[Rfam]
RNA sequence: UUGCCCACUUUGGCACUAGCACAUUUUUGCUUCGUUCUCCCUGUUUGAGCAAUCAUGUGUAGUGCCAAUAUGGGACG
Numbered sequence: 001u002u003g004c005c006c007a008c009u010u011u012g013g014c015a016c017u018a019g020c021a022c023a024u025u026u027u028u029g030c031u032u033c034g035u036u037c038u039c040c041c042u043g044u045u046u047g048a049g050c051a052a053u054c055a056u057g058u059g060u061a062g063u064g065c066c067a068a069u070a071u072g073g074g075a076c077g
Stems, first nucleotide, its partner, number of pairs: 004074004010068008019060006027052006
A member of the RNA family "mir-96 microRNA precursor family" from Sphaeramia orbicularis, 77 nucleotides long. The base pairs follow the family's consensus structure, which was predicted with RNAalifold. For this family Rfam cites "Embryonic stem cell-specific MicroRNAs" (Houbaviy et al., Dev Cell, 2003). Its family is annotated with RISC complex and miRNA-mediated post-transcriptional gene silencing in the Gene Ontology. The match comes from Rfam's covariance-model search (83 bits). Rfam 15.1 lists 691 matches to the family in 590 species.